This 75-nucleotide RNA sequence from Eucalyptus grandis belongs to the Rfam family "Plastid-ycf2 5UTR RNA".
From the family's description: Plastid ycf2 is a non-coding RNA (ncRNA) recognised in plastids.
A reference for the family is Richter et al. (2023), "Retrograde signaling in plants: A critical review focusing on the GUN pathway and beyond", Plant Commun.
Lineage of the source: Eukaryota > Streptophyta > Magnoliopsida > Myrtoideae > Eucalyptus.
By type it is a cis-regulatory element.
RNA sequence: AUGCAUCUAGUGGGAAUUGGACUUAUGAACUCGCCAAUUAUGAGUUGCGCGAUUUAAUCAUUCAGCCAUGGAGGC
Numbered sequence: 001a002u003g004c005a006u007c008u009a010g011u012g013g014g015a016a017u018u019g020g021a022c023u024u025a026u027g028a029a030c031u032c033g034c035c036a037a038u039u040a041u042g043a044g045u046u047g048c049g050c051g052a053u054u055u056a057a058u059c060a061u062u063c064a065g066c067c068a069u070g071g072a073g074g075c
Base pairs, nucleotide, nucleotide: 003075004074006072007071008070010026011025012024013023014022040069041068042067044066045065046064047063049061051059